About this RNA
A member of the RNA family "Burkholderia sRNA 11" from Paraburkholderia steynii, 208 nucleotides long. Rfam classes the family as a small RNA. Identified by RNA-seq, RACE and Northern blot. Strongly expressed in biofilm. Identified in as ncRNA13. It is complimentary by 40 nucleotides with a gene encoding a regulatory protein (BCAL1948). ncS11 is strongly up-regulated in the stationary phase and biofilms, while BCAL1948 is down-regulated under these conditions. The source organism's lineage runs through Bacteria, Pseudomonadati, Betaproteobacteria, Burkholderiaceae and Paraburkholderia. Gene Ontology term of the family: bacterial biofilm matrix.

[Rfam]
RNA sequence: AUCCCUUCGCUAAGGAGUGUCCUAUGCGAAAAAUCACGGCCGCUUUGAUAGCGAGCCUGAUAGGGCUGACAGCGUUGUCCGUGUCGACCACGGCUAUCGCAUGUGGUGAUCAGGUCCAAAGCACAAGCAAUGGUAAAUGAUCCCACCGCCCGAAGGCGCCGAGUGCGCAUGAAAAAAGGCCUUCAUCCGACGAUGAAGGCCUUUUACU
Number, nucleotide and partner (000 for none) at each position: 001a000002u036003c000004c000005c000006u030007u029008c028009g027010c026011u000012a000013a023014g022015g021016a000017g000018u000019g000020u000021c015022c014023u013024a000025u000026g010027c009028g008029a007030a006031a000032a000033a000034u000035c000036a002037c000038g057039g056040c055041c053042g052043c051044u050045u000046u000047g000048a000049u000050a044051g043052c042053g041054a000055g040056c039057c038058u000059g000060a000061u000062a000063g151064g150065g149066c148067u000068g000069a000070c000071a000072g100073c099074g098075u096076u000077g000078u000079c093080c092081g091082u090083g089084u000085c000086g000087a000088c000089c083090a082091c081092g080093g079094c000095u000096a075097u000098c074099g073100c072101a000102u000103g146104u145105g144106g000107u000108g142109a141110u140111c139112a000113g000114g000115u000116c133117c132118a000119a000120a000121g000122c000123a000124c000125a000126a000127g000128c000129a000130a000131u000132g117133g116134u000135a000136a000137a000138u000139g111140a110141u109142c108143c000144c105145a104146c103147c000148g066149c065150c064151c063152g000153a000154a000155g000156g168157c167158g166159c165160c000161g000162a000163g000164u000165g159166c158167g157168c156169a000170u000171g000172a000173a000174a205175a204176a203177a202178g201179g200180c199181c198182u197183u196184c195185a194186u193187c192188c000189g000190a000191c000192g187193a186194u185195g184196a183197a182198g181199g180200c179201c178202u177203u176204u175205u174206a000207c000208u000